[Rfam]
RNA sequence: UGCGCUCAUUUCGUCCUCCAUCGCCGAUGGACUCAACGAAACCCGC
Numbered sequence: 001u002g003c004g005c006u007c008a009u010u011u012c013g014u015c016c017u018c019c020a021u022c023g024c025c026g027a028u029g030g031a032c033u034c035a036a037c038g039a040a041a042c043c044c045g046c
Stems, first nucleotide, its partner, number of pairs: 011039004017031005
Shown here is a 46-nucleotide RNA sequence from Syntrophotalea carbinolica, a member of the family "Moco-II RNA". The organism belongs to Syntrophotalea carbinolica, within Bacteria. It is one of the family's seed sequences.